This 172-nucleotide RNA from Azoarcus taiwanensis belongs to the Rfam family "Group II catalytic intron D1-D4-3". A search with the family's covariance model found it, with a score of 85 bits. Rfam describes the family as follows. Group II introns are found in rRNA, tRNA and mRNA of organelles in fungi, plants and protists, and also in mRNA in bacteria.
RNA sequence: GCGAGGGCGACCGAGCGUCGGAAGGAGGCGUGGAGCAUAAGCUGCAAGGCGAUGGACAAGAAUCGGAUAGAAGACGCUGCCGAGCAGGGCGAGCGGGCGAUGAACCGCGAAGCUUUCGUGAUCAAGGCGAAGUGGCGUAAAUCCGGCGGUUGUGCAGUGAAGGAGUGCGAUC
Numbered sequence: 001g002c003g004a005g006g007g008c009g010a011c012c013g014a015g016c017g018u019c020g021g022a023a024g025g026a027g028g029c030g031u032g033g034a035g036c037a038u039a040a041g042c043u044g045c046a047a048g049g050c051g052a053u054g055g056a057c058a059a060g061a062a063u064c065g066g067a068u069a070g071a072a073g074a075c076g077c078u079g080c081c082g083a084g085c086a087g088g089g090c091g092a093g094c095g096g097g098c099g100a101u102g103a104a105c106c107g108c109g110a111a112g113c114u115u116u117c118g119u120g121a122u123c124a125a126g127g128c129g130a131a132g133u134g135g136c137g138u139a140a141a142u143c144c145g146g147c148g149g150u151u152g153u154g155c156a157g158u159g160a161a162g163g164a165g166u167g168c169g170a171u172c
Stems, first nucleotide, its partner, number of pairs: 001016002005012002028172001031169002036163001041158006047151002050148002063146006074138003078134003087115004093108004